[Rfam]
RNA sequence: AAUUUCGGGUAAUCGCGGAUAGGAGUGCCUAUCUGAGGAAAGUCCAUGCUCGCACAAGCUGAGAUGCUUGUAGUGUUCGUGCUUAGUGAAACCAUAAGCUAAGGCUCUGACGGCGGGAAAAAAAGCUAAGGCAUUGCUAAGUUUGAGUAUCCCUGAAAGUGCCACAGUGACGAAGUUGUUUUGGAAACAAGACAAGUGGAACGCGGUAAACCCCUCGAGCGAGCAACCCAAACAUUGGUAGGGGCGCUUGACCCUUUGAAAAUGAACAAAGGGCUGAGGCAAUCAUGCAGAUAGAUGAUUACCAAUCUAAUAGGAACCUGCUCUAUUAGUGAACAGAACAUGGCUUAUAGAA
Numbered sequence: 001a002a003u004u005u006c007g008g009g010u011a012a013u014c015g016c017g018g019a020u021a022g023g024a025g026u027g028c029c030u031a032u033c034u035g036a037g038g039a040a041a042g043u044c045c046a047u048g049c050u051c052g053c054a055c056a057a058g059c060u061g062a063g064a065u066g067c068u069u070g071u072a073g074u075g076u077u078c079g080u081g082c083u084u085a086g087u088g089a090a091a092c093c094a095u096a097a098g099c100u101a102a103g104g105c106u107c108u109g110a111c112g113g114c115g116g117g118a119a120a121a122a123a124a125g126c127u128a129a130g131g132c133a134u135u136g137c138u139a140a141g142u143u144u145g146a147g148u149a150u151c152c153c154u155g156a157a158a159g160u161g162c163c164a165c166a167g168u169g170a171c172g173a174a175g176u177u178g179u180u181u182u183g184g185a186a187a188c189a190a191g192a193c194a195a196g197u198g199g200a201a202c203g204c205g206g207u208a209a210a211c212c213c214c215u216c217g218a219g220c221g222a223g224c225a226a227c228c229c230a231a232a233c234a235u236u237g238g239u240a241g242g243g244g245c246g247c248u249u250g251a252c253c254c255u256u257u258g259a260a261a262a263u264g265a266a267c268a269a270a271g272g273g274c275u276g277a278g279g280c281a282a283u284c285a286u287g288c289a290g291a292u293a294g295a296u297g298a299u300u301a302c303c304a305a306u307c308u309a310a311u312a313g314g315a316a317c318c319u320g321c322u323c324u325a326u327u328a329g330u331g332a333a334c335a336g337a338a339c340a341u342g343g344c345u346u347a348u349a350g351a352a
Stems, first nucleotide, its partner, number of pairs: 004352003007348001008303007016035006040346003044343005049223005054071006077218003081214001082103006104111001105109001112213002115153004123144004130138003159211002161207003176195008227243003247278004252273002279288003307329007

Source information: This 352-nucleotide RNA from Aerococcus christensenii belongs to the Rfam family "Bacterial RNase P class B". The literature on the family includes a 1998 paper in Annu Rev Biochem by Frank and Pace, "Ribonuclease P: unity and diversity in a tRNA processing ribozyme". Ribonuclease P (RNase P) is a ubiquitous endoribonuclease, found in archaea, bacteria and eukarya as well as chloroplasts and mitochondria. Its best characterised activity is the generation of mature 5'-ends of tRNAs by cleaving the 5'-leader elements of precursor-tRNAs. Cellular RNase Ps are ribonucleoproteins. RNA from bacterial RNase Ps retains its catalytic activity in the absence of the protein subunit, i.e. it is a ribozyme. Isolated eukaryotic and archaeal RNase P RNA has not been shown to retain its catalytic function, but is still essential for the catalytic activity of the holoenzyme. Although the archaeal and eukaryotic holoenzyme s have a much greater protein content than the bacterial ones, the RNA cores from all the three lineages are homologous -- helices corresponding to P1, P2, P3, P4, and P10/11 are common to all cellular RNase P RNAs. Yet, there is considerable sequence variation, particularly among the eukaryotic RNAs. By type it is a ribozyme. Pairs were carried over by alignment from the consensus structure, which is taken from published work. NCBI's taxonomy places the organism under Bacteria, Bacillota, Lactobacillales, Aerococcaceae, Aerococcus.